This 86-nucleotide sequence from Phaedon cochleariae belongs to the Rfam family "mir-282 microRNA precursor family". NCBI's taxonomy places the organism under Eukaryota, Metazoa, Protostomia, Hexapoda, Phaedon. For this family Rfam cites "Direct sequencing and expression analysis of a large number of miRNAs in Aedes aegypti and a multi-species survey of novel mosquito miRNAs" (Li et al., BMC Genomics, 2009). The family's consensus secondary structure was predicted with RNAalifold.
RNA sequence: ACAGGGUUAUGAGGUAGCCUCUCCUAGGCUUUGUCUGUGCACUCGACUUAGACAUAGUCUAACUGAGGUUAACUCUGGCUCAGCAA
Numbered sequence: 001a002c003a004g005g006g007u008u009a010u011g012a013g014g015u016a017g018c019c020u021c022u023c024c025u026a027g028g029c030u031u032u033g034u035c036u037g038u039g040c041a042c043u044c045g046a047c048u049u050a051g052a053c054a055u056a057g058u059c060u061a062a063c064u065g066a067g068g069u070u071a072a073c074u075c076u077g078g079c080u081c082a083g084c085a086a
Stems, first nucleotide, its partner, number of pairs: 012074002015071006027059004032054005